Notes: Glycine riboswitch aptamer: an 85-nucleotide RNA from Anaerocolumna jejuensis.

RNA sequence: UUGAUGGAGUUGGGAGAGACUGUGGUGAACACAGCGCCGAAGGGGAUUCGCGAUAACUCUCAGGCAAAAGGACCUGCUCCGGACG
Numbered sequence: 001u002u003g004a005u006g007g008a009g010u011u012g013g014g015a016g017a018g019a020c021u022g023u024g025g026u027g028a029a030c031a032c033a034g035c036g037c038c039g040a041a042g043g044g045g046a047u048u049c050g051c052g053a054u055a056a057c058u059c060u061c062a063g064g065c066a067a068a069a070g071g072a073c074c075u076g077c078u079c080c081g082g083a084c085g
Stems, first nucleotide, its partner, number of pairs: 006080005012074002020034004036065003039061002043059003
NCBI's taxonomy places the organism under Bacteria, Bacillati, Lachnospirales, Lachnospiraceae, Anaerocolumna jejuensis.
Pairs were carried over by alignment from the consensus structure.